[Rfam]
RNA sequence: GCCAAAUGAUGUCAAGUGGAUGGCAUUAGCAUUCUGUGCAAAGAUGACCUUCAUCCAUCACCCCAUGCUGAUGGCU
Numbered sequence: 001g002c003c004a005a006a007u008g009a010u011g012u013c014a015a016g017u018g019g020a021u022g023g024c025a026u027u028a029g030c031a032u033u034c035u036g037u038g039c040a041a042a043g044a045u046g047a048c049c050u051u052c053a054u055c056c057a058u059c060a061c062c063c064c065a066u067g068c069u070g071a072u073g074g075c076u
Base pairs, nucleotide, nucleotide: 001075002074003073004072029039030038031037032036
Notes:
The record is a 76-nucleotide sequence from Elachura formosa, which matches "Small nucleolar RNA SNORD83" in Rfam. NCBI's taxonomy places the organism under Eukaryota, Gnathostomata, Amniota, Australaves, Elachura. For this family Rfam cites "Characterisation of the U83 and U84 small nucleolar RNAs: two novel 2'-O-ribose methylation guide RNAs that lack complementarities to ribosomal RNAs" (Jady and Kiss, Nucleic Acids Res, 2000). The base pairs follow the family's consensus structure, which was predicted with PFOLD.